[Rfam]
RNA sequence: GGGGGAUUUAGCAGCCUCCCCAUUCAAGACGCUCGCGUCCAAGGCUUGC
Numbered sequence: 001g002g003g004g005g006a007u008u009u010a011g012c013a014g015c016c017u018c019c020c021c022a023u024u025c026a027a028g029a030c031g032c033u034c035g036c037g038u039c040c041a042a043g044g045c046u047u048g049c
Stems, first nucleotide, its partner, number of pairs: 002021005011049004028039004